[Rfam]
RNA sequence: AUGACUUGUGAUAAAACUAUAUUAAUUUCACCAUAAUUACCAUAAAAAAAUAAUCAAAAAGGAAUUAUGGUAUAAU
Numbered sequence: 001a002u003g004a005c006u007u008g009u010g011a012u013a014a015a016a017c018u019a020u021a022u023u024a025a026u027u028u029c030a031c032c033a034u035a036a037u038u039a040c041c042a043u044a045a046a047a048a049a050a051u052a053a054u055c056a057a058a059a060a061g062g063a064a065u066u067a068u069g070g071u072a073u074a075a076u
Base pairs, nucleotide, nucleotide: 030071031070032069033068034067035066036065037064